The record is a 112-nucleotide RNA from Rhododendron williamsianum, which matches "Small nucleolar RNA snoR100" in Rfam. The literature on the family includes a 2002 paper in Curr Biol by Marker et al., "Experimental RNomics: identification of 140 candidates for small non-messenger RNAs in the plant Arabidopsis thaliana". Rfam classes the family as an H/ACA-box small nucleolar RNA.
RNA sequence: CAAUGAAGGAAGCAUGGUAAUGUGCACAUAAAUUGAAUUGGGUCUCUAGAUUGACCUGCCCUUUUUUAUGCCAUUUGGCUUUAAUUUGGGGACAUGGUUCUGCAGCAAAAUA
Numbered sequence: 001c002a003a004u005g006a007a008g009g010a011a012g013c014a015u016g017g018u019a020a021u022g023u024g025c026a027c028a029u030a031a032a033u034u035g036a037a038u039u040g041g042g043u044c045u046c047u048a049g050a051u052u053g054a055c056c057u058g059c060c061c062u063u064u065u066u067u068a069u070g071c072c073a074u075u076u077g078g079c080u081u082u083a084a085u086u087u088g089g090g091g092a093c094a095u096g097g098u099u100c101u102g103c104a105g106c107a108a109a110a111u112a
Base pairs, nucleotide, nucleotide: 012025013024014023015022040095042093043092044091050085051084052083058079059078060077
Its family is annotated with nucleolus and RNA processing in the Gene Ontology.